[Rfam]
RNA sequence: GGAAGUAGCAAAUACUUAGAAGAGGAAAAAAAUAUCUAAGGACUGAAGAGGAGAAAGGUUCCUAGACAACAUUAAUUGGAAUAGGGUGAAUCGAUCCUAAAAGACGGAUGUAGAUUUAUUAGAAGAAACUGAGCUUGAAAAAGCGUUUACGCAUGAAAGGGAAAAAGACUAAAAGUUCUUUAUCAAUAGUCAAAAAGUCACGAAAAAAGGACUGAGAAAGUGGUAACAGGGGAUGAACUUUGGUAUGGGGUAUGACGGUAGCGACAAGAGAUCUCUUUUCUUGUUAACACGGAGGAACGGGCAUUGAAAUGAAUCAAUCAGAGGUAUGACUGUUAUACCCAUGGAAGAAACAGGGCGGUAGUUUUGUUAGUGUACUGUGAAACUCUUCAUAAAACACGAAGGGAAACUGAUAAUAGGCGGCGAUUGAUCGUACUCAUAACCGCAACAGGUCUCCAAGAAUAAUAAUCUUUAGUUGAA
Numbered sequence: 001g002g003a004a005g006u007a008g009c010a011a012a013u014a015c016u017u018a019g020a021a022g023a024g025g026a027a028a029a030a031a032a033u034a035u036c037u038a039a040g041g042a043c044u045g046a047a048g049a050g051g052a053g054a055a056a057g058g059u060u061c062c063u064a065g066a067c068a069a070c071a072u073u074a075a076u077u078g079g080a081a082u083a084g085g086g087u088g089a090a091u092c093g094a095u096c097c098u099a100a101a102a103g104a105c106g107g108a109u110g111u112a113g114a115u116u117u118a119u120u121a122g123a124a125g126a127a128a129c130u131g132a133g134c135u136u137g138a139a140a141a142a143g144c145g146u147u148u149a150c151g152c153a154u155g156a157a158a159g160g161g162a163a164a165a166a167g168a169c170u171a172a173a174a175g176u177u178c179u180u181u182a183u184c185a186a187u188a189g190u191c192a193a194a195a196a197g198u199c200a201c202g203a204a205a206a207a208a209g210g211a212c213u214g215a216g217a218a219a220g221u222g223g224u225a226a227c228a229g230g231g232g233a234u235g236a237a238c239u240u241u242g243g244u245a246u247g248g249g250g251u252a253u254g255a256c257g258g259u260a261g262c263g264a265c266a267a268g269a270g271a272u273c274u275c276u277u278u279u280c281u282u283g284u285u286a287a288c289a290c291g292g293a294g295g296a297a298c299g300g301g302c303a304u305u306g307a308a309a310u311g312a313a314u315c316a317a318u319c320a321g322a323g324g325u326a327u328g329a330c331u332g333u334u335a336u337a338c339c340c341a342u343g344g345a346a347g348a349a350a351c352a353g354g355g356c357g358g359u360a361g362u363u364u365u366g367u368u369a370g371u372g373u374a375c376u377g378u379g380a381a382a383c384u385c386u387u388c389a390u391a392a393a394a395c396a397c398g399a400a401g402g403g404a405a406a407c408u409g410a411u412a413a414u415a416g417g418c419g420g421c422g423a424u425u426g427a428u429c430g431u432a433c434u435c436a437u438a439a440c441c442g443c444a445a446c447a448g449g450u451c452u453c454c455a456a457g458a459a460u461a462a463u464a465a466u467c468u469u470u471a472g473u474u475g476a477a
Stems, first nucleotide, its partner, number of pairs: 015040006041474004050454004056434002061085004070078002092430003096160002101154001103120002107117002110115001127147003164181005184426004189418003193414001199231001201229001238401005247386004253380001255378005263368001264284006288343002291340002300330001302328003310320003350367007440449002456468003

This 477-nucleotide part of an RNA from Entamoeba invadens belongs to the Rfam family "Eukaryotic large subunit ribosomal RNA". Pairs were carried over by alignment from the consensus structure, which is taken from published work.